[Rfam]
RNA sequence: CUGUCAGCAGCGGGAGAAUCCGGGUCCGCCCGGUGCCGAAGGAGCAACCGCCCCGGUAAACUCUCAGGCGCAAGGGACCGCGCUGAUAA
Numbered sequence: 001c002u003g004u005c006a007g008c009a010g011c012g013g014g015a016g017a018a019u020c021c022g023g024g025u026c027c028g029c030c031c032g033g034u035g036c037c038g039a040a041g042g043a044g045c046a047a048c049c050g051c052c053c054c055g056g057u058a059a060a061c062u063c064u065c066a067g068g069c070g071c072a073a074g075g076g077a078c079c080g081c082g083c084u085g086a087u088a089a
Base pairs, nucleotide, nucleotide: 006084007083008082010081011080012079013078020033021032022031023030035069036068037067038065039064042063043062044061048056049055

Shown here is an 89-nucleotide sequence from Thioclava sp. SK-1, a member of the family "Glycine riboswitch aptamer".
Taxonomically the source falls in Thioclava (Bacteria, Alphaproteobacteria, Rhodobacterales, Paracoccaceae).